RNA sequence: UACACCGCAGGACGUUGAAAUACGUCUAUUGAGUGGAAAUCGUACCGAUGCAGGCAGGGUCGAGUAAGUUAUUCCGAAAGACCUUGAGGUGAUAAGA
Numbered sequence: 001u002a003c004a005c006c007g008c009a010g011g012a013c014g015u016u017g018a019a020a021u022a023c024g025u026c027u028a029u030u031g032a033g034u035g036g037a038a039a040u041c042g043u044a045c046c047g048a049u050g051c052a053g054g055c056a057g058g059g060u061c062g063a064g065u066a067a068g069u070u071a072u073u074c075c076g077a078a079a080g081a082c083c084u085u086g087a088g089g090u091g092a093u094a095a096g097a
Stems, first nucleotide, its partner, number of pairs: 003035003010027006044090003055086006061076001062074004
RT-4 RNA: a 97-nucleotide sequence. Rfam's curators put it in the seed alignment.